[Rfam]
The family of this 115-nucleotide sequence from Panicum miliaceum is "Small nucleolar RNA SNORD14".

RNA sequence: AGGUGAUGAUGACAAAUCUUAGGCUUGUUUCUCAACAUUCGCAGUAGCCGCCCAAGAGCUUUCGCCCUGCCAGGCUUGAGAGCUAGUGCUGUUAAUUCCUUGGAUGUCUGAGCCU
Numbered sequence: 001a002g003g004u005g006a007u008g009a010u011g012a013c014a015a016a017u018c019u020u021a022g023g024c025u026u027g028u029u030u031c032u033c034a035a036c037a038u039u040c041g042c043a044g045u046a047g048c049c050g051c052c053c054a055a056g057a058g059c060u061u062u063c064g065c066c067c068u069g070c071c072a073g074g075c076u077u078g079a080g081a082g083c084u085a086g087u088g089c090u091g092u093u094a095a096u097u098c099c100u101u102g103g104a105u106g107u108c109u110g111a112g113c114c115u
Base pairs, nucleotide, nucleotide: 001115002114003113004112058083059082060081061080062079063078
Pairs were carried over by alignment from the consensus structure, which was predicted with PFOLD. It scores 82 bits against the family's covariance model. Lineage of the source: Eukaryota > Spermatophyta > Liliopsida > Poaceae > Panicum sect. Panicum. Gene Ontology terms of the family: nucleolus and RNA processing. For this family Rfam cites "An essential domain in Saccharomyces cerevisiae U14 snoRNA is absent in vertebrates, but conserved in other yeasts" (Samarsky et al., Nucleic Acids Res, 1996). About the family: U14 small nucleolar RNA (U14 snoRNA) is required for early cleavages of eukaryotic precursor rRNAs.